The record is a 71-nucleotide sequence from Apostichopus japonicus, which matches "mir-8/mir-141/mir-200 microRNA precursor family" in Rfam. A reference for the family is Lagos-Quintana et al. (2003), "New microRNAs from mouse and human", RNA. Rfam links the family to the GO terms RISC complex and miRNA-mediated post-transcriptional gene silencing. The match comes from Rfam's covariance-model search (53 bits). Pairs were carried over by alignment from the consensus structure, which was predicted with RNAalifold. The organism belongs to Apostichopus, within Eukaryota.

RNA sequence: GACAACAUCGCACCAUACAGCAUUUGAUUUGUUUUUCCGAUUAUCUAAUACUGUCUGGUGAUGAUGUUGAC
Numbered sequence: 001g002a003c004a005a006c007a008u009c010g011c012a013c014c015a016u017a018c019a020g021c022a023u024u025u026g027a028u029u030u031g032u033u034u035u036u037c038c039g040a041u042u043a044u045c046u047a048a049u050a051c052u053g054u055c056u057g058g059u060g061a062u063g064a065u066g067u068u069g070a071c
Stems, first nucleotide, its partner, number of pairs: 003069007011060005017054004022049003026045002